[Rfam]
RNA sequence: AAUUAUCCGUGCAGAUGCGGAUUACCAUUAGCUAGACGGGAAGACCCUAUGCAGCUUUACUGUAGUUAGUCAUUGUAUGCUUAUAAUUAAGGUGUAGAAUACAAGGGAGUCGAUUAGACAUCAGUGAAAUACCUUGACUUAAUUAGGAGCAUGCUAAACCAAAUAAAUUUUGGGACAGUGAUUAAUGGGCAGUUUAUCUGGGGCGGAUUUCUCCCAUAUAGUACCGGAGAAGUACAAAGGUCGGCUUAAAUUGGAUGGAAACCAAUGGGCUAAAGAGAGCCUAAUUAAGUGUAAUGGCAUAAGCCGGCUUAACUGUAAGACUGACAAGUCAUACAGAUACGCAAGUAGGUCAUAGUGAUCCGGUGGUCCAUUAUGGAAUGGCCAUCGCUCAACGAAUAAAAGCUACGCUAGGGAUAACAGGCUGAUCAAUCCCGAGAGUCCAUAUUGACGGAUUGGUUUGGCACCUCGAUGUCGACUCAUCACAUCCUGGGGGUGUAGGUGCUCCCAAGGGUUCGGCUGUUCGCCGAGUAAAGUGGUACGUGAGUUGGGUUAAGUACGUCGUGAGACAGUACGGUUCCUAUCUACUAAUGGAAUU
Numbered sequence: 001a002a003u004u005a006u007c008c009g010u011g012c013a014g015a016u017g018c019g020g021a022u023u024a025c026c027a028u029u030a031g032c033u034a035g036a037c038g039g040g041a042a043g044a045c046c047c048u049a050u051g052c053a054g055c056u057u058u059a060c061u062g063u064a065g066u067u068a069g070u071c072a073u074u075g076u077a078u079g080c081u082u083a084u085a086a087u088u089a090a091g092g093u094g095u096a097g098a099a100u101a102c103a104a105g106g107g108a109g110u111c112g113a114u115u116a117g118a119c120a121u122c123a124g125u126g127a128a129a130u131a132c133c134u135u136g137a138c139u140u141a142a143u144u145a146g147g148a149g150c151a152u153g154c155u156a157a158a159c160c161a162a163a164u165a166a167a168u169u170u171u172g173g174g175a176c177a178g179u180g181a182u183u184a185a186u187g188g189g190c191a192g193u194u195u196a197u198c199u200g201g202g203g204c205g206g207a208u209u210u211c212u213c214c215c216a217u218a219u220a221g222u223a224c225c226g227g228a229g230a231a232g233u234a235c236a237a238a239g240g241u242c243g244g245c246u247u248a249a250a251u252u253g254g255a256u257g258g259a260a261a262c263c264a265a266u267g268g269g270c271u272a273a274a275g276a277g278a279g280c281c282u283a284a285u286u287a288a289g290u291g292u293a294a295u296g297g298c299a300u301a302a303g304c305c306g307g308c309u310u311a312a313c314u315g316u317a318a319g320a321c322u323g324a325c326a327a328g329u330c331a332u333a334c335a336g337a338u339a340c341g342c343a344a345g346u347a348g349g350u351c352a353u354a355g356u357g358a359u360c361c362g363g364u365g366g367u368c369c370a371u372u373a374u375g376g377a378a379u380g381g382c383c384a385u386c387g388c389u390c391a392a393c394g395a396a397u398a399a400a401a402g403c404u405a406c407g408c409u410a411g412g413g414a415u416a417a418c419a420g421g422c423u424g425a426u427c428a429a430u431c432c433c434g435a436g437a438g439u440c441c442a443u444a445u446u447g448a449c450g451g452a453u454u455g456g457u458u459u460g461g462c463a464c465c466u467c468g469a470u471g472u473c474g475a476c477u478c479a480u481c482a483c484a485u486c487c488u489g490g491g492g493g494u495g496u497a498g499g500u501g502c503u504c505c506c507a508a509g510g511g512u513u514c515g516g517c518u519g520u521u522c523g524c525c526g527a528g529u530a531a532a533g534u535g536g537u538a539c540g541u542g543a544g545u546u547g548g549g550u551u552a553a554g555u556a557c558g559u560c561g562u563g564a565g566a567c568a569g570u571a572c573g574g575u576u577c578c579u580a581u582c583u584a585c586u587a588a589u590g591g592a593a594u595u
Stems, first nucleotide, its partner, number of pairs: 005022005025591007034583003038578002046412004051408002053404005059193004066185007075154008084145008102136005109119003159173002162170002196208004209231006232393001234350002240308006246288002249286006289298002313336005319330003338347003361387007369380002421462003425459001426456007436446002473548001474546004478540001479537005486511002489506006513527005554572004558567003
Shown here is a 595-nucleotide part of an RNA, a member of the family "Bacterial large subunit ribosomal RNA". The family's consensus secondary structure is taken from published work.